[Rfam]
RNA sequence: UUCUUAUCAAGAGAGGCUGAGGGACUGGCCCUAUGACGCCCGGCAACCUGAAUAUUUAUUAUUUAAUGGUGCUAAUUCCAGCUGGUUAUAUACCGAAAGAUGAGGA
Dot-bracket structure: ((((((((....(.(((...(((.[[[[)))......))))((((.((((((.........))))..))))))...(]]]](.(........).)..)))))))))
Numbered sequence: 001u002u003c004u005u006a007u008c009a010a011g012a013g014a015g016g017c018u019g020a021g022g023g024a025c026u027g028g029c030c031c032u033a034u035g036a037c038g039c040c041c042g043g044c045a046a047c048c049u050g051a052a053u054a055u056u057u058a059u060u061a062u063u064u065a066a067u068g069g070u071g072c073u074a075a076u077u078c079c080a081g082c083u084g085g086u087u088a089u090a091u092a093c094c095g096a097a098a099g100a101u102g103a104g105g106a
Stems, first nucleotide, its partner, number of pairs: 001106008013041001015040003021031003025081004042073004047069002049065004077098001082095001084093001